[Rfam]
RNA sequence: CCAGACGGCCGGAUGACCGCUUUUCGCAGGGUGACCUGUGGGGAGAGGAAAGUCCGGGCUCCACGGAAAUACGGUGCCGGGUAACGCCCGGCGGGGGCGACCCCAGGGAAAGUGCCACAGAAAGCAAACCGCCUGUCCGGCCUUACGGCCCAGCGGGUAAGGGUGAAAGGGUGCGGUAAGAGCGCACCGCGCUCCCGGCAACGGGGGCGGCACGGUAAACCCCACCAGGAGCAAGACCGAAUAGGGAAGACAUGGGCCUUUACGGGUCCAGGCGCGUUUCCGCGCUGUCGUCCGGGUUGGUCGCGUGAGGCAUCCGGCAACGGAUGUCCCAGAUGAAUGGUCAUCACCCGCCUCAUCCGUUCGGAAGAGGGAUGAAAAGCGGGUACAGAACCCGGCUUACAGGCCGUCUGGCACC
Dot-bracket structure: ((((((((((((((((((.(((((((((........)))))))))....[[[.[[[[[((((.....[[...(((((((((.....)))))(((((....)))).)((...(((((............((((((((..((((....))))..))))))..)).......((((((.......))))))(((((((((....)))))))).)..)))..)))))))).))))...((((......(((.((....................(((((..]]..))))).)).))).....))))......((((((((....))))))))..........))))))).............................................]]]]]]]].).))))))))))....
Numbered sequence: 001c002c003a004g005a006c007g008g009c010c011g012g013a014u015g016a017c018c019g020c021u022u023u024u025c026g027c028a029g030g031g032u033g034a035c036c037u038g039u040g041g042g043g044a045g046a047g048g049a050a051a052g053u054c055c056g057g058g059c060u061c062c063a064c065g066g067a068a069a070u071a072c073g074g075u076g077c078c079g080g081g082u083a084a085c086g087c088c089c090g091g092c093g094g095g096g097g098c099g100a101c102c103c104c105a106g107g108g109a110a111a112g113u114g115c116c117a118c119a120g121a122a123a124g125c126a127a128a129c130c131g132c133c134u135g136u137c138c139g140g141c142c143u144u145a146c147g148g149c150c151c152a153g154c155g156g157g158u159a160a161g162g163g164u165g166a167a168a169g170g171g172u173g174c175g176g177u178a179a180g181a182g183c184g185c186a187c188c189g190c191g192c193u194c195c196c197g198g199c200a201a202c203g204g205g206g207g208c209g210g211c212a213c214g215g216u217a218a219a220c221c222c223c224a225c226c227a228g229g230a231g232c233a234a235g236a237c238c239g240a241a242u243a244g245g246g247a248a249g250a251c252a253u254g255g256g257c258c259u260u261u262a263c264g265g266g267u268c269c270a271g272g273c274g275c276g277u278u279u280c281c282g283c284g285c286u287g288u289c290g291u292c293c294g295g296g297u298u299g300g301u302c303g304c305g306u307g308a309g310g311c312a313u314c315c316g317g318c319a320a321c322g323g324a325u326g327u328c329c330c331a332g333a334u335g336a337a338u339g340g341u342c343a344u345c346a347c348c349c350g351c352c353u354c355a356u357c358c359g360u361u362c363g364g365a366a367g368a369g370g371g372a373u374g375a376a377a378a379g380c381g382g383g384u385a386c387a388g389a390a391c392c393c394g395g396c397u398u399a400c401a402g403g404c405c406g407u408c409u410g411g412c413a414c415c
Stems, first nucleotide, its partner, number of pairs: 001411010011400001012345007020045009050398003054395005059231004068279002073226004077091005092106001093104004107222002112220002114216003129162002131158006139150004170188006189211001190209008235302004245293003249289002271286005309328008
This 415-nucleotide RNA sequence from Skermanella aerolata belongs to the Rfam family "Bacterial RNase P class A".
The match comes from Rfam's covariance-model search (310 bits).